[Rfam]
RNA: LOOT RNA
RNA sequence: GGCCUAAACCAGUAGCAAUACUGGCAUGGUAAAAAGUCCUUGGAAGAUAAAGAACCCAUCAUAGGGUCGUCUUCCAAGGCCAUAUCGGGAAACCGGUAUGAGAGGCUUCGAGCCUCU
Numbered sequence: 001g002g003c004c005u006a007a008a009c010c011a012g013u014a015g016c017a018a019u020a021c022u023g024g025c026a027u028g029g030u031a032a033a034a035a036g037u038c039c040u041u042g043g044a045a046g047a048u049a050a051a052g053a054a055c056c057c058a059u060c061a062u063a064g065g066g067u068c069g070u071c072u073u074c075c076a077a078g079g080c081c082a083u084a085u086c087g088g089g090a091a092a093c094c095g096g097u098a099u100g101a102g103a104g105g106c107u108u109c110g111a112g113c114c115u116c117u
Stems, first nucleotide, its partner, number of pairs: 002030003009024006038079011052068002055066003081100008101117006